[Rfam]
RNA sequence: CUAUAAUGCGCGGGUCUUAGGGGAGUAGUCUGCGUCACGCGCAAUGCGUGUCGCGCCGCCGUCAACAUAAUUGGCACGUUGUGCCAUGGCGCCGGCAGCCGUUCUUCGGCCUGACGAGACCUAUGACGUCAUCCCUCACACCCGGGCUGGGCGGGGGGAUCGCGUCAUUGGUCCGUCCGUCCAGCCCGAGGAAUGCC
Numbered sequence: 001c002u003a004u005a006a007u008g009c010g011c012g013g014g015u016c017u018u019a020g021g022g023g024a025g026u027a028g029u030c031u032g033c034g035u036c037a038c039g040c041g042c043a044a045u046g047c048g049u050g051u052c053g054c055g056c057c058g059c060c061g062u063c064a065a066c067a068u069a070a071u072u073g074g075c076a077c078g079u080u081g082u083g084c085c086a087u088g089g090c091g092c093c094g095g096c097a098g099c100c101g102u103u104c105u106u107c108g109g110c111c112u113g114a115c116g117a118g119a120c121c122u123a124u125g126a127c128g129u130c131a132u133c134c135c136u137c138a139c140a141c142c143c144g145g146g147c148u149g150g151g152c153g154g155g156g157g158g159a160u161c162g163c164g165u166c167a168u169u170g171g172u173c174c175g176u177c178c179g180u181c182c183a184g185c186c187c188g189a190g191g192a193a194u195g196c197c
Stems, first nucleotide, its partner, number of pairs: 032054003055096004060091005072086005098197001100195010
Annotation
Manganese Mn2+ riboswitch aptamer (yybP-ykoY): a 197-nucleotide RNA from Paraburkholderia tagetis. Rfam describes the family as follows. This RNA was originally discovered in E. coli during a large scale screen and was named SraF. The family was later found to exist upstream of related families of protein genes in many bacteria, including the the yybP and ykoK genes in B. subtilis.